[Rfam]
The record is a 77-nucleotide sequence from Leptobrachium leishanense, which matches "mir-34 microRNA precursor family" in Rfam. It scores 61 bits against the family's covariance model. The literature on the family includes a 2003 paper in Dev Cell by Houbaviy et al., "Embryonic stem cell-specific MicroRNAs". Its family is annotated with RISC complex and miRNA-mediated post-transcriptional gene silencing in the Gene Ontology. Its Rfam clan is "mir-34 clan".

RNA sequence: GCUUUGAGGCAGUGUAGUUAGCUGAUUGUGUAUUAAUAUGUACAUUGUGCAAUCACUAGCUUCACUACCAUCAGAAU
Numbered sequence: 001g002c003u004u005u006g007a008g009g010c011a012g013u014g015u016a017g018u019u020a021g022c023u024g025a026u027u028g029u030g031u032a033u034u035a036a037u038a039u040g041u042a043c044a045u046u047g048u049g050c051a052a053u054c055a056c057u058a059g060c061u062u063c064a065c066u067a068c069c070a071u072c073a074g075a076a077u
Stems, first nucleotide, its partner, number of pairs: 003075004008069002011066004016061006023055010